[Rfam]
Notes
A member of the RNA family "MIR398 microRNA precursor family" from Prunus avium, 125 nucleotides long. A reference for the family is Jones-Rhoades and Bartel (2004), "Computational identification of plant microRNAs and their targets, including a stress-induced miRNA", Mol Cell. Gene Ontology terms of the family: RISC complex and miRNA-mediated post-transcriptional gene silencing. Pairs were carried over by alignment from the consensus structure, which was predicted with WAR.
RNA sequence: UGGAGCCCCACAGGAGCGAUCUGAGAUCACAUGUAUGCAGCAACAGCAGAACCCAAGAGGGCCGUCAUUCGGUCCUGCUGUUCUUUGCAUUUCACGUGUUCUCAGGUCGCCCCUGCAGGGCUUCC
Numbered sequence: 001u002g003g004a005g006c007c008c009c010a011c012a013g014g015a016g017c018g019a020u021c022u023g024a025g026a027u028c029a030c031a032u033g034u035a036u037g038c039a040g041c042a043a044c045a046g047c048a049g050a051a052c053c054c055a056a057g058a059g060g061g062c063c064g065u066c067a068u069u070c071g072g073u074c075c076u077g078c079u080g081u082u083c084u085u086u087g088c089a090u091u092u093c094a095c096g097u098g099u100u101c102u103c104a105g106g107u108c109g110c111c112c113c114u115g116c117a118g119g120g121c122u123u124c125c
Stems, first nucleotide, its partner, number of pairs: 007119002011115004016110004023103004028098003032094001
NCBI's taxonomy places the organism under Eukaryota, Viridiplantae, Euphyllophyta, Rosales, Prunus.